[Rfam]
RNA sequence: ACGUCAGGGAAAGGAUUCUGCAGUUGGUCCCAUUCCAAAGCUCGGGAAAUGAGUGUUGGGCACAGAAUCCAGCCUCUGCUUGUG
Numbered sequence: 001a002c003g004u005c006a007g008g009g010a011a012a013g014g015a016u017u018c019u020g021c022a023g024u025u026g027g028u029c030c031c032a033u034u035c036c037a038a039a040g041c042u043c044g045g046g047a048a049a050u051g052a053g054u055g056u057u058g059g060g061c062a063c064a065g066a067a068u069c070c071a072g073c074c075u076c077u078g079c080u081u082g083u084g
Base pairs, nucleotide, nucleotide: 001083002082003081005078006077007076008075009074013070014069015068016067017066018065019064020063023061024060025059027057031055032054033053034052035051
RNA: mir-541 microRNA precursor family